The record is a 55-nucleotide RNA sequence, which matches "Glutamine riboswitch aptamer (glnA leader)" in Rfam.
RNA sequence: AUCGUUCAUCCUUACUUGUAAGGACGGAAGUAGACGAAAGUUGAAGGAACGCGCC
Numbered sequence: 001a002u003c004g005u006u007c008a009u010c011c012u013u014a015c016u017u018g019u020a021a022g023g024a025c026g027g028a029a030g031u032a033g034a035c036g037a038a039a040g041u042u043g044a045a046g047g048a049a050c051g052c053g054c055c
Stems, first nucleotide, its partner, number of pairs: 003051005009024005027052001033042003
Dot-bracket structure: ..(((((.(((((......)))))..[.....(((....)))....)))))]...
Its family is annotated with glutamine binding in the Gene Ontology.